[Rfam]
RNA sequence: AUGAUCUGAGGAAAGGCUCCUGUGUUGCUGAACCUGGCCUGUAGUGGGCGCAGCCUUGUACCAGGCAGCCAGAGCCUGACCUAAGUCAAUUCCCAGGAUAGUUCUUGGAGUUUGAAUUUGCAAUAACAGGUGUAAACAUUGUAGCAGCAGUUUGAUGAUCAUAUGUGUUAUUGCAAAUAGGA
Numbered sequence: 001a002u003g004a005u006c007u008g009a010g011g012a013a014a015g016g017c018u019c020c021u022g023u024g025u026u027g028c029u030g031a032a033c034c035u036g037g038c039c040u041g042u043a044g045u046g047g048g049c050g051c052a053g054c055c056u057u058g059u060a061c062c063a064g065g066c067a068g069c070c071a072g073a074g075c076c077u078g079a080c081c082u083a084a085g086u087c088a089a090u091u092c093c094c095a096g097g098a099u100a101g102u103u104c105u106u107g108g109a110g111u112u113u114g115a116a117u118u119u120g121c122a123a124u125a126a127c128a129g130g131u132g133u134a135a136a137c138a139u140u141g142u143a144g145c146a147g148c149a150g151u152u153u154g155a156u157g158a159u160c161a162u163a164u165g166u167g168u169u170a171u172u173g174c175a176a177a178u179a180g181g182a
Stems, first nucleotide, its partner, number of pairs: 003081001005079002008076001015070004019065004024061002027054004033048002093108002095105004117177009127167002133161001135159001137157004143152003
A member of the RNA family "Small Cajal body specific RNA 16" from Canis lupus, 182 nucleotides long. A reference for the family is Darzacq et al. (2002), "Cajal body-specific small nuclear RNAs: a novel class of 2'-O-methylation and pseudouridylation guide RNAs", EMBO J. The source organism's lineage runs through Eukaryota, Boreoeutheria, Laurasiatheria, Canis and Canis lupus. scaRNAs are a specific class of small nuclear RNAs which localise to the Cajal bodies and guide the modification of RNA polymerase II transcribed spliceosomal RNAs U1, U2, U4, U5 and U12. ACA47 belongs to the H/ACA box class of guide RNAs as it has the predicted hairpin-hinge-hairpin-tail structure, the conserved H/ACA-box motifs and is found associated with GAR1. ACA47 is predicted to guide the pseudouridylation of residue U5 of the U1 spliceosomal snRNA.